[Rfam]
RNA: Small nucleolar RNA SNORA12
Organism: Rhynochetos jubatus
RNA sequence: UGUUGUGGUGGUUUCUGUAUUUGGCGGAUCUGUUAACUGUGUCAGAGCGGCCUUAAACUACCACAGAAAUCAGACAGGAGAAGGCUGUACUGAGAACUUUUUCAAGCUUUCAGUUCUCAGCUUUUUGUUCAGCUCCUACAGGA
Numbered sequence: 001u002g003u004u005g006u007g008g009u010g011g012u013u014u015c016u017g018u019a020u021u022u023g024g025c026g027g028a029u030c031u032g033u034u035a036a037c038u039g040u041g042u043c044a045g046a047g048c049g050g051c052c053u054u055a056a057a058c059u060a061c062c063a064c065a066g067a068a069a070u071c072a073g074a075c076a077g078g079a080g081a082a083g084g085c086u087g088u089a090c091u092g093a094g095a096a097c098u099u100u101u102u103c104a105a106g107c108u109u110u111c112a113g114u115u116c117u118c119a120g121c122u123u124u125u126u127g128u129u130c131a132g133c134u135c136c137u138a139c140a141g142g143a
Base pairs, nucleotide, nucleotide: 005064006063007062008061009060010059011058023052024051025050027048029046030045031044032043077136078135079134080133103127104126105125106124